[Rfam]
Nucleotides: 133
Stems, first nucleotide, its partner, number of pairs: 002059005015046007026032002071126003075123001093111005099105001
Number, partner (000 for none) and nucleotide at each position: 001000c002059c003058c004057u005056c006055c007000a008000a009000c010000a011000a012000a013000g014000g015046u016045g017044u018043g019042u020041c021040u022000g023000c024000g025000u026032g027031g028000u029000u030000u031027u032026c033000u034000g035000u036000c037000u038000u039000u040021g041020g042019a043018c044017g045016u046015g047000u048000a049000a050000g051000a052000a053000u054000u055006g056005g057004a058003g059002g060000a061000a062000a063000a064000g065000a066000a067000a068000c069000g070000u071126g072125g073124a074000c075123u076000u077000g078000g079000a080000g081000a082000a083000g084000u085000c086000u087000g088000g089000g090000g091000c092000c093111a094110g095109c096108c097107u098000u099105c100000u101000c102000c103000c104000u105099g106000c107097a108096g109095g110094c111093u112000c113000a114000a115000g116000a117000u118000c119000a120000a121000c122000c123075a124073u125072c126071c127000c128000a129000g130000a131000u132000a133000g